A member of the RNA family "ZMP/ZTP riboswitch aptamer (pfl RNA motif)" from Yinghuangia soli, 92 nucleotides long. Gene Ontology terms of the family: one-carbon metabolic process and regulation of purine nucleotide biosynthetic process. The base pairs follow the family's consensus structure, which is taken from published work.

Nucleotides: 092
Stems, first nucleotide, its partner, number of pairs: 004054002007051006015043002017080004026039004069087005
Number, partner (000 for none) and nucleotide at each position: 001000u002000g003000c004054c005053g006000g007051u008050g009049c010048c011047g012046c013000g014000a015043c016042u017080g018079g019078c020077g021000u022000a023000g024000a025000c026039g027038u028037g029036g030000a031000a032000c033000c034000g035000a036029c037028c038027a039026c040000g041000a042016g043015g044000a045000a046012g047011c048010g049009g050008c051007a052000g053005c054004g055000a056000g057000c058000a059000g060000u061000c062000g063000c064000g065000c066000g067000c068000g069087g070086u071085g072084c073083c074000g075000u076000c077020c078019g079018c080017c081000u082000g083073g084072g085071c086070a087069c088000c089000c090000g091000g092000g